RNA sequence: UUAACUCGAAUUUGUAUGGAGUUGGAACGUUUGUCGCUAAGGUCGCUGUUCCAACUGCAUACAUAUUUGCA
Numbered sequence: 001u002u003a004a005c006u007c008g009a010a011u012u013u014g015u016a017u018g019g020a021g022u023u024g025g026a027a028c029g030u031u032u033g034u035c036g037c038u039a040a041g042g043u044c045g046c047u048g049u050u051c052c053a054a055c056u057g058c059a060u061a062c063a064u065a066u067u068u069g070c071a
Stems, first nucleotide, its partner, number of pairs: 008068004013063004018058001020056010034042002

A member of the RNA family "mir-2807 microRNA precursor family" from Bombyx mori, 71 nucleotides long. On this family, see Liu et al., BMC Genomics 2010: "MicroRNAs of Bombyx mori identified by Solexa sequencing". Taxonomically the source falls in Bombyx (Eukaryota, Mandibulata, Neoptera, Obtectomera). Rfam 15.1 lists 5,120 matches to the family in 8 species.